RNA sequence: UUCUUAUCGAGAGAGAUGGAGGGAGAGGCCCGAAGAAAUCUCAGCAACCAGCUGUUUGCAGUCAGGUGCUAAGUCCUGCGGUGUGAGAUCCGCGAUGAUAAGAA
Numbered sequence: 001u002u003c004u005u006a007u008c009g010a011g012a013g014a015g016a017u018g019g020a021g022g023g024a025g026a027g028g029c030c031c032g033a034a035g036a037a038a039u040c041u042c043a044g045c046a047a048c049c050a051g052c053u054g055u056u057u058g059c060a061g062u063c064a065g066g067u068g069c070u071a072a073g074u075c076c077u078g079c080g081g082u083g084u085g086a087g088a089u090c091c092g093c094g095a096u097g098a099u100a101a102g103a104a
Stems, first nucleotide, its partner, number of pairs: 001104008013042005021031003026077003043070004048066002050062001079092003083089001
The family of this 104-nucleotide sequence from Salisediminibacterium halotolerans is "SAM riboswitch aptamer (S box leader)".
The SAM riboswitch is found upstream of a number of genes which code for proteins involved in methionine or cysteine biosynthesis in Gram-positive bacteria.
The family's consensus secondary structure is taken from published work.
The match comes from Rfam's covariance-model search (76 bits).